[Rfam]
RNA sequence: AUCCCAAUGAGGAAGCACUCCCCUAAAAUUGAUAGGAAGUGCCGUAUGACACUUUAAACAGCAGAGGGUUCACAAUCGUACCCAUUAGUCUCUCCCAGUUCACCACUCACAAAACCCUUUCGACUUCGUUUCCUCUGUGGAAACGUUGUCGUUUUCCGGGGCUCUUGCUGAUUGGUUGGGAUUGAGUUUUGAGUACGGUGCUCACUCUGUGUGUGUGAUUUUAAACGGGUCUCUGAGGGUU
Number, nucleotide and partner (000 for none) at each position: 001a241002u000003c239004c238005c237006a000007a000008u000009g000010a000011g000012g000013a000014a000015g000016c000017a000018c000019u000020c000021c000022c000023c000024u000025a000026a000027a000028a000029u000030u000031g000032a000033u000034a000035g000036g000037a000038a000039g000040u000041g000042c000043c000044g000045u000046a000047u000048g000049a000050c000051a000052c000053u000054u000055u000056a000057a000058a000059c000060a000061g000062c000063a000064g000065a000066g000067g000068g000069u000070u000071c000072a000073c000074a000075a000076u198077c197078g196079u195080a194081c193082c000083c191084a190085u185086u184087a183088g182089u181090c180091u179092c000093u000094c000095c175096c174097a173098g172099u171100u000101c170102a000103c000104c000105a000106c000107u000108c000109a000110c000111a000112a000113a000114a000115c000116c000117c000118u000119u000120u000121c000122g000123a000124c000125u000126u000127c000128g000129u000130u000131u000132c000133c000134u000135c000136u000137g000138u000139g000140g000141a000142a000143a000144c000145g000146u000147u000148g000149u000150c000151g000152u000153u000154u000155u000156c000157c000158g000159g000160g000161g000162c000163u000164c000165u000166u000167g000168c000169u000170g101171a099172u098173u097174g096175g095176u000177u000178g000179g091180g090181a089182u088183u087184g086185a085186g000187u000188u000189u000190u084191g083192a000193g081194u080195a079196c078197g077198g076199u000200g000201c000202u000203c000204a000205c000206u000207c000208u000209g000210u000211g000212u000213g000214u000215g000216u000217g000218a000219u000220u000221u000222u000223a000224a000225a000226c000227g000228g000229g000230u000231c000232u000233c000234u000235g000236a000237g005238g004239g003240u000241u001
Rfam assigns this 241-nucleotide sequence from Cannabis sativa to the family "Small nucleolar RNA Z112". The base pairs follow the family's consensus structure, which was predicted with PFOLD. By type it is a C/D-box small nucleolar RNA. For this family Rfam cites "A novel gene organization: intronic snoRNA gene clusters from Oryza sativa" (Liang et al., Nucleic Acids Res, 2002). It scores 72 bits against the family's covariance model.